[Rfam]
RNA: glmS glucosamine-6-phosphate activated ribozyme aptamer
Organism: Paenibacillus arenilitoris
RNA sequence: UAAGCAAGUUAAGCGCCAGAGCUUGCGUGAUGAAUGAUUUGGUUCCGAACGUGGCAACAUGUGAAGAAUCGGACAUUCAUACGGGAAGCUGACGAGGUGAAGGUGUUCGAAGCAUUCGGCGGGGACCUUCCGGUAGAUGGCAAGCCAACCGAAAGCCGUAACGCAAAAAGACCGGGCGACCGGUCCUACAAACGUGCGGCGGGCUGCCGA
Numbered sequence: 001u002a003a004g005c006a007a008g009u010u011a012a013g014c015g016c017c018a019g020a021g022c023u024u025g026c027g028u029g030a031u032g033a034a035u036g037a038u039u040u041g042g043u044u045c046c047g048a049a050c051g052u053g054g055c056a057a058c059a060u061g062u063g064a065a066g067a068a069u070c071g072g073a074c075a076u077u078c079a080u081a082c083g084g085g086a087a088g089c090u091g092a093c094g095a096g097g098u099g100a101a102g103g104u105g106u107u108c109g110a111a112g113c114a115u116u117c118g119g120c121g122g123g124g125a126c127c128u129u130c131c132g133g134u135a136g137a138u139g140g141c142a143a144g145c146c147a148a149c150c151g152a153a154a155g156c157c158g159u160a161a162c163g164c165a166a167a168a169a170g171a172c173c174g175g176g177c178g179a180c181c182g183g184u185c186c187u188a189c190a191a192a193c194g195u196g197c198g199g200c201g202g203g204c205u206g207c208c209g210a
Stems, first nucleotide, its partner, number of pairs: 020090005026084001099130005107119004131151004136146001155200006170185006